[Rfam]
Shown here is a 90-nucleotide RNA sequence from Enterococcus phoeniculicola, a member of the family "Enterococcus sRNA 84". A reference for the family is Innocenti et al. (2015), "Whole-genome mapping of 5' RNA ends in bacteria by tagged sequencing: a comprehensive view in Enterococcus faecalis", RNA. The family's RNA type in Rfam is antisense RNA. The family has 5 seed sequences and 30 matches in Rfam 15.1.
RNA sequence: AACCAAAAACAACCUUUUUAUUUUUCAUUUUACUCUUUUUAGAGUAAUUACUCCUUUUUCCAUCGGCCUAACCAACCGAUGGUUUUUUUA
Numbered sequence: 001a002a003c004c005a006a007a008a009a010c011a012a013c014c015u016u017u018u019u020a021u022u023u024u025u026c027a028u029u030u031u032a033c034u035c036u037u038u039u040u041a042g043a044g045u046a047a048u049u050a051c052u053c054c055u056u057u058u059u060c061c062a063u064c065g066g067c068c069u070a071a072c073c074a075a076c077c078g079a080u081g082g083u084u085u086u087u088u089u090a
Base pairs, nucleotide, nucleotide: 030047031046032045033044034043035042060082061081062080063079064078065077066076069074